The record is a 92-nucleotide sequence from Rhamnella rubrinervis, which matches "Small nucleolar RNA snoR26" in Rfam.
It is annotated as a C/D-box small nucleolar RNA.
The base pairs follow the family's consensus structure, which was predicted with WAR.
[Rfam]
RNA sequence: UGAGCAUCGUUGAUGAGCGUAUGAUUAUUGUUAUCCUUGCACUUUGAUUGCCUGUGAAGAAAACCCAUGGGGAAGUUAUUUCUGAGAUGCUC
Numbered sequence: 001u002g003a004g005c006a007u008c009g010u011u012g013a014u015g016a017g018c019g020u021a022u023g024a025u026u027a028u029u030g031u032u033a034u035c036c037u038u039g040c041a042c043u044u045u046g047a048u049u050g051c052c053u054g055u056g057a058a059g060a061a062a063a064c065c066c067a068u069g070g071g072g073a074a075g076u077u078a079u080u081u082c083u084g085a086g087a088u089g090c091u092c
Stems, first nucleotide, its partner, number of pairs: 002092007